[Rfam]
RNA sequence: UUCCAGUGAUGACUUUCAUUUUUGUGCCACUUGUCUGGGCCCCUGAUUUAGUGAUGGGAUUGAGGAACCGAGGAG
Numbered sequence: 001u002u003c004c005a006g007u008g009a010u011g012a013c014u015u016u017c018a019u020u021u022u023u024g025u026g027c028c029a030c031u032u033g034u035c036u037g038g039g040c041c042c043c044u045g046a047u048u049u050a051g052u053g054a055u056g057g058g059a060u061u062g063a064g065g066a067a068c069c070g071a072g073g074a075g
Stems, first nucleotide, its partner, number of pairs: 001075004
Dot-bracket structure: ((((...................................................................))))
RNA: Small nucleolar RNA SNORD66